[Rfam]
RNA: Flavo-1 RNA
Organism: Flavobacterium hercynium
RNA sequence: GAUUUGCGUUAGGGAUAGAAACGGUAUCCUUUUAUUUUUUUUCUUUAGAAAAAUAAAAGAUUUAGUGAAUAGCCCGACACUUG
Numbered sequence: 001g002a003u004u005u006g007c008g009u010u011a012g013g014g015a016u017a018g019a020a021a022c023g024g025u026a027u028c029c030u031u032u033u034a035u036u037u038u039u040u041u042u043c044u045u046u047a048g049a050a051a052a053a054u055a056a057a058a059g060a061u062u063u064a065g066u067g068a069a070u071a072g073c074c075c076g077a078c079a080c081u082u083g
Base pairs, nucleotide, nucleotide: 012075013074014073016071017070021066022065026061027060028059032056033055034054035053036052037051038050039049040048041047